[Rfam]
RNA: L31-Corynebacteriaceae ribosomal protein leader
Organism: Corynebacterium mycetoides
RNA sequence: ACUCAGGCACGAUCCUCGACCAACUGCGGGGAACCGACCUGAAGUUCAAUCCUGAGGGA
Numbered sequence: 001a002c003u004c005a006g007g008c009a010c011g012a013u014c015c016u017c018g019a020c021c022a023a024c025u026g027c028g029g030g031g032a033a034c035c036g037a038c039c040u041g042a043a044g045u046u047c048a049a050u051c052c053u054g055a056g057g058g059a
Base pairs, nucleotide, nucleotide: 001045002044003043004041005040006039007038013032014031015030016029017028018027